Shown here is a 79-nucleotide RNA sequence from Prolemur simus, a member of the family "Small nucleolar RNA U2-19". It is annotated as a C/D-box small nucleolar RNA. The literature on the family includes a 2004 paper in Curr Biol by Tycowski et al., "Guide RNAs with 5' Caps and Novel Box C/D snoRNA-like Domains for Modification of snRNAs in Metazoa". The base pairs follow the family's consensus structure, which is taken from published work.
[Rfam]
RNA sequence: AAUCCAUGAUGAACACAGCCAAACCCGGGCGUCAGAAUACAUUCCUGUCUGCCUGACCAUGAGCUCUGCGGUUCUGAGA
Numbered sequence: 001a002a003u004c005c006a007u008g009a010u011g012a013a014c015a016c017a018g019c020c021a022a023a024c025c026c027g028g029g030c031g032u033c034a035g036a037a038u039a040c041a042u043u044c045c046u047g048u049c050u051g052c053c054u055g056a057c058c059a060u061g062a063g064c065u066c067u068g069c070g071g072u073u074c075u076g077a078g079a
Base pairs, nucleotide, nucleotide: 029058031057032056033055037050039048040047